[Rfam]
RNA: SAM riboswitch aptamer (S box leader)
RNA sequence: UCCUUAUAAAGAGUUGGGGGAGGAACCUGGUCCAUUGAUCCCACAGCAACCUGUCCUUUUAUAGAAGGUAGAAGGUGCUAAGUCCAGCAGGCAGCGGCCUGAAUGAUAAGGG
Numbered sequence: 001u002c003c004u005u006a007u008a009a010a011g012a013g014u015u016g017g018g019g020g021a022g023g024a025a026c027c028u029g030g031u032c033c034a035u036u037g038a039u040c041c042c043a044c045a046g047c048a049a050c051c052u053g054u055c056c057u058u059u060u061a062u063a064g065a066a067g068g069u070a071g072a073a074g075g076u077g078c079u080a081a082g083u084c085c086a087g088c089a090g091g092c093a094g095c096g097g098c099c100u101g102a103a104u105g106a107u108a109a110g111g112g
Stems, first nucleotide, its partner, number of pairs: 001112007013044001015043004022033003027087004045079004050075002052071001055068003088101005